Overview
This 98-nucleotide RNA from Rugositalea oryzae belongs to the Rfam family "Repression of heat shock gene expression (ROSE) element". Pairs were carried over by alignment from the consensus structure, which is taken from published work. Rfam describes the family as follows. This family represents a 5' UTR cis-regulatory element found in heat shock mRNAs and is known as the ROSE (repression of heat shock gene expression) element. The ROSE element is a negative regulator of heat shock gene expression. The secondary structure is thought to be regulated by temperature. The source organism's lineage runs through Bacteria, Pseudomonadati, Alphaproteobacteria, Nitrobacteraceae and Rugositalea.
RNA sequence: CCGGACGCCCCGAUCGGGGUCCGGCGAACCGGGCGCCGGAUCGGUGUCUGGCGCUCAUGACCACCAUGUUGCUCAUGUGGAGGAUAUGGCUAUGAGGA
Numbered sequence: 001c002c003g004g005a006c007g008c009c010c011c012g013a014u015c016g017g018g019g020u021c022c023g024g025c026g027a028a029c030c031g032g033g034c035g036c037c038g039g040a041u042c043g044g045u046g047u048c049u050g051g052c053g054c055u056c057a058u059g060a061c062c063a064c065c066a067u068g069u070u071g072c073u074c075a076u077g078u079g080g081a082g083g084a085u086a087u088g089g090c091u092a093u094g095a096g097g098a
Base pairs, nucleotide, nucleotide: 001024002023003022004021005020006019008018009017030050031049032048033047034046035045036044037043038042054096055095056094057093058092059091064089065088066087067086068085069084070083072082073081074080